[Rfam]
RNA sequence: GGCCGCCUGAGGGAAAGGUCCUCCUAGUACGAGAGGAACGGAGGGCCGGGGCCAACGGUUUACCGGUCGUCCUACAGGGCGGCGCCGGGCAGCCGCGCCCCUGUGGAUAAGGGCUGAAAGCAUCUAAGCCCGAAGCCACUCCCAAAAAUAGGCGGCCAAUCGGGGCCUAUAGGGCCUGGCAACGGGCCUUGGGCCCCGACGAGGGCUCCCCUAGAAGAGGGGGUUGAUGGGGUGGGCGUGUACGGGCGGAGGCUUAGGCCGGACGCCCUCAGCGCGCCACUCCCAAUCGCCCGAGCC
Numbered sequence: 001g002g003c004c005g006c007c008u009g010a011g012g013g014a015a016a017g018g019u020c021c022u023c024c025u026a027g028u029a030c031g032a033g034a035g036g037a038a039c040g041g042a043g044g045g046c047c048g049g050g051g052c053c054a055a056c057g058g059u060u061u062a063c064c065g066g067u068c069g070u071c072c073u074a075c076a077g078g079g080c081g082g083c084g085c086c087g088g089g090c091a092g093c094c095g096c097g098c099c100c101c102u103g104u105g106g107a108u109a110a111g112g113g114c115u116g117a118a119a120g121c122a123u124c125u126a127a128g129c130c131c132g133a134a135g136c137c138a139c140u141c142c143c144a145a146a147a148a149u150a151g152g153c154g155g156c157c158a159a160u161c162g163g164g165g166c167c168u169a170u171a172g173g174g175c176c177u178g179g180c181a182a183c184g185g186g187c188c189u190u191g192g193g194c195c196c197c198g199a200c201g202a203g204g205g206c207u208c209c210c211c212u213a214g215a216a217g218a219g220g221g222g223g224u225u226g227a228u229g230g231g232g233u234g235g236g237c238g239u240g241u242a243c244g245g246g247c248g249g250a251g252g253c254u255u256a257g258g259c260c261g262g263a264c265g266c267c268c269u270c271a272g273c274g275c276g277c278c279a280c281u282c283c284c285a286a287u288c289g290c291c292c293g294a295g296c297c
Base pairs, nucleotide, nucleotide: 001157002156003155004154005153006152007151008150011143012142013141014140017047018046019045020044021043022042023041024040048101049100050099051098052097056095057094058093063088064087065086066085067084068081069080070079071078072077104138105137106136111131112130113129114128115127203292204291205290206289207223208222209221210220211219228285229284230283231281232280233279234278235277236275237274238273244268245267246266247265248264251260

Archaeal large subunit ribosomal RNA: a 297-nucleotide part of an RNA from Candidatus Calditenuaceae archaeon HR02. Gene Ontology terms of the family: ribosome and structural constituent of ribosome. A search with the family's covariance model found it, with a score of 2574 bits. Clan: LSU clan.